This 84-nucleotide RNA sequence belongs to the Rfam family "freshwater-2 RNA". It is annotated as a cis-regulatory element. Rfam's curators put it in the seed alignment.
RNA sequence: UGUGCCGCAAGGCGCUCUUAUGCUGUACCCGCAGCGUAGAGGCUAGAACCCUCAUCGGACUUCUAAUUAAAGGAGAAAACAAUG
Numbered sequence: 001u002g003u004g005c006c007g008c009a010a011g012g013c014g015c016u017c018u019u020a021u022g023c024u025g026u027a028c029c030c031g032c033a034g035c036g037u038a039g040a041g042g043c044u045a046g047a048a049c050c051c052u053c054a055u056c057g058g059a060c061u062u063c064u065a066a067u068u069a070a071a072g073g074a075g076a077a078a079a080c081a082a083u084g
Stems, first nucleotide, its partner, number of pairs: 002015005019038007039053004